[Rfam]
RNA sequence: AAAACUUAUGUAUAAGUUCCUUACUUCCAUGGGAUAAAGUUGACCAUCGGAGGUUGAAUAAUCCGUAAGGAGCCAUUCUAUG
Numbered sequence: 001a002a003a004a005c006u007u008a009u010g011u012a013u014a015a016g017u018u019c020c021u022u023a024c025u026u027c028c029a030u031g032g033g034a035u036a037a038a039g040u041u042g043a044c045c046a047u048c049g050g051a052g053g054u055u056g057a058a059u060a061a062u063c064c065g066u067a068a069g070g071a072g073c074c075a076u077u078c079u080a081u082g
Base pairs, nucleotide, nucleotide: 016073017072018071019070020069021068022067023054024053025052026051027050028049032045033044